[Rfam]
RNA: M-box riboswitch aptamer (ykoK leader)
Organism: Halalkalibacterium halodurans
RNA sequence: AAUCAUCCUCGUUAGGUGAGGCUCCUGUGCUGGAGAUACGCUGCUGCCCAAAAACGUCCAAAGACGCCAAUGGGUCAACAGAAACCAUCGACAUAAGGUGGUUUUUAACGUAGCUGGCUUCGUCCUAUGCCGCACAGUGCUAAAGCUCUACGAAUGGAGGAGUUU
Numbered sequence: 001a002a003u004c005a006u007c008c009u010c011g012u013u014a015g016g017u018g019a020g021g022c023u024c025c026u027g028u029g030c031u032g033g034a035g036a037u038a039c040g041c042u043g044c045u046g047c048c049c050a051a052a053a054a055c056g057u058c059c060a061a062a063g064a065c066g067c068c069a070a071u072g073g074g075u076c077a078a079c080a081g082a083a084a085c086c087a088u089c090g091a092c093a094u095a096a097g098g099u100g101g102u103u104u105u106u107a108a109c110g111u112a113g114c115u116g117g118c119u120u121c122g123u124c125c126u127a128u129g130c131c132g133c134a135c136a137g138u139g140c141u142a143a144a145g146c147u148c149u150a151c152g153a154a155u156g157g158a159g160g161a162g163u164u165u
Base pairs, nucleotide, nucleotide: 006160007159009157010156011151012150013096015147016146017145020141021140022139025137026136027135028134029133030132032131033130040114041113042112043111044110046075047074048073049072050071055066056065057064058063081105082104083103084102087099088098089097116125117124